[Rfam]
RNA sequence: ACUCUCUCAGCUCUGCAUGGUUACACUUGGCUUCACACGUGUGACUUUCGUAAUGGGGAGAGAGAGAAAAGACCACCUCGGGAUCUCGGAUUGCCUGUACUGUGGUCCUUCUUUCCUUGAGGUGUGCAACAGUU
Number, nucleotide and partner (000 for none) at each position: 001a000002c066003u065004c064005u063006c062007u061008c060009a000010g000011c058012u057013c056014u055015g054016c000017a000018u000019g046020g045021u044022u043023a042024c041025a040026c039027u000028u000029g000030g000031c000032u000033u000034c000035a000036c000037a000038c000039g026040u025041g024042u023043g022044a021045c020046u019047u000048u000049c000050g000051u000052a000053a000054u015055g014056g013057g012058g011059a000060g008061a007062g006063a005064g004065a003066g002067a000068a000069a000070a000071g000072a000073c000074c124075a123076c122077c121078u120079c000080g118081g117082g116083a000084u000085c000086u000087c000088g112089g111090a110091u000092u000093g107094c000095c105096u104097g000098u000099a000100c000101u000102g000103u000104g096105g095106u000107c093108c000109u000110u090111c089112u088113u000114u000115c000116c082117u081118u080119g000120a078121g077122g076123u075124g074125u000126g000127c000128a000129a000130c000131a000132g000133u000134u000
Shown here is a 134-nucleotide RNA from Carlito syrichta, a member of the family "Small nucleolar RNA SNORA64/SNORA10 family". Its family is annotated with RNA processing and nucleolus in the Gene Ontology. NCBI's taxonomy places the organism under Eukaryota, Deuterostomia, Vertebrata, Euarchontoglires, Carlito. Rfam's curators write: This family belongs to the H/ACA class of small nucleolar RNAs (snoRNAs) which act as guides in the the modification of uridines to pseudouridines. The family's consensus secondary structure is taken from published work. Rfam 15.1 lists 703 matches to the family in 311 species. The literature on the family includes a 1999 paper in EMBO J by Narayanan et al., "Nucleolar localization signals of box H/ACA small nucleolar RNAs". Rfam classes the family as an H/ACA-box small nucleolar RNA.